Shown here is a 61-nucleotide RNA from Python bivittatus, a member of the family "Selenocysteine insertion sequence 1". The incorporation of selenocysteine into a protein sequence is directed by an in-frame UGA codon (usually a stop codon) within the coding region of the mRNA. Selenoprotein mRNAs contain a conserved secondary structure in the 3' UTR that is required for the distinction of UGA stop from UGA selenocysteine. The selenocysteine insertion sequence (SECIS) is around 60 nt in length and adopts a hairpin structure which is sufficiently well-defined and conserved to act as a computational screen for selenoprotein genes. The family's RNA type in Rfam is cis-regulatory element.
[Rfam]
RNA sequence: AUGGUGUUUAUGAGGUGACUAGAUUAAAGCCUUUAGGACAUCUAGUUGCUGAUAUUGCCAU
Dot-bracket structure: ((((..........((((((((((.....((....))..))))))))))........))))